[Rfam]
RNA: c-di-GMP-I riboswitch aptamer
Organism: Paenibacillus solanacearum
RNA sequence: UCUCGAUAAAGGCAAACCGGACGAAAGUCCGUGACGCAAAGCUACAGGGGCUAAAGCGGUUGUCGAGCCAUGCCAGCCAGUUGUCGAA
Numbered sequence: 001u002c003u004c005g006a007u008a009a010a011g012g013c014a015a016a017c018c019g020g021a022c023g024a025a026a027g028u029c030c031g032u033g034a035c036g037c038a039a040a041g042c043u044a045c046a047g048g049g050g051c052u053a054a055a056g057c058g059g060u061u062g063u064c065g066a067g068c069c070a071u072g073c074c075a076g077c078c079a080g081u082u083g084u085c086g087a088a
Base pairs, nucleotide, nucleotide: 012037013036018031019030020029021028022027040082041081042080043079047078048077049074050073051072056068057067